About this RNA:
Rfam assigns this 172-nucleotide RNA sequence from Salibacterium qingdaonense to the family "Group II catalytic intron D1-D4-3". NCBI's taxonomy places the organism under Bacteria, Bacillota, Bacilli, Caryophanales, Salibacterium. It scores 142 bits against the family's covariance model. Its family is annotated with Group II intron splicing in the Gene Ontology.

RNA sequence: UCCAUCGCGAGGUGGAAUCUGAAGGAAGCCGAAGGCAAAUCUCCGACCCGAGGAACACGAAUCUCAUAGGAGGCUAAUCUUCUUGGAUGAGGCUGCGAAACAAGCCGAAGCCCGAACGACCAAAGAGAAGGUUAGUAAAUGAGGCGGGUAUAUGGAGAGGAAGGUUGUGCGU
Number, nucleotide and partner (000 for none) at each position: 001u016002c015003c014004a013005u012006c011007g000008c000009g000010a000011g006012g005013u004014g003015g002016a001017a000018u000019c000020u000021g000022a000023a000024g000025g000026a000027a000028g172029c171030c000031g000032a168033a000034g000035g165036c164037a000038a000039a000040u158041c157042u156043c155044c154045g153046a149047c148048c147049c146050g145051a000052g000053g000054a000055a000056c000057a000058c000059g000060a000061a000062u144063c143064u142065c141066a140067u139068a000069g000070g000071a000072g000073g136074c135075u134076a000077a132078u131079c130080u129081u128082c127083u126084u000085g113086g112087a000088u110089g000090a000091g106092g105093c104094u103095g000096c000097g000098a000099a000100a000101c000102a000103a094104g093105c092106c091107g000108a000109a000110g088111c000112c086113c085114g000115a000116a000117c000118g000119a000120c000121c000122a000123a000124a000125g000126a083127g082128a081129a080130g079131g078132u077133u000134a075135g074136u073137a000138a000139a067140u066141g065142a064143g063144g062145c050146g049147g048148g047149u046150a000151u000152a000153u045154g044155g043156a042157g041158a040159g000160g000161a000162a000163g000164g036165u035166u000167g000168u032169g000170c000171g029172u028